[Rfam]
RNA sequence: GCGCACUCUGUGUCACAUCGAUAUAUCCAGCCUCAUGUGAUGACAAUUUGUAAGCUUGCUAGAAUAAGGGGGAGCUUCGCUUAUCCAUGCGGCAACUAUCUUCAGCCCAGAUGCCGCAUUGAAUUCGGGCCUCACAUGCU
Numbered sequence: 001g002c003g004c005a006c007u008c009u010g011u012g013u014c015a016c017a018u019c020g021a022u023a024u025a026u027c028c029a030g031c032c033u034c035a036u037g038u039g040a041u042g043a044c045a046a047u048u049u050g051u052a053a054g055c056u057u058g059c060u061a062g063a064a065u066a067a068g069g070g071g072g073a074g075c076u077u078c079g080c081u082u083a084u085c086c087a088u089g090c091g092g093c094a095a096c097u098a099u100c101u102u103c104a105g106c107c108c109a110g111a112u113g114c115c116g117c118a119u120u121g122a123a124u125u126c127g128g129g130c131c132u133c134a135c136a137u138g139c140u
Stems, first nucleotide, its partner, number of pairs: 001055002005051002009045003012041007020034002067137001070133003074130003078127002084122002087119008096110002
The record is a 140-nucleotide RNA sequence from Drosophila melanogaster, which matches "Small nucleolar RNA psi18S-841/snoR66" in Rfam. psi18S-841 is a member of the H/ACA class of snoRNA. This family is responsible for guiding the modification of uridine 841 in Drosophila 18S rRNA to pseudouridine. Rfam links the family to the GO terms RNA processing and nucleolus. Rfam's curators put it in the seed alignment.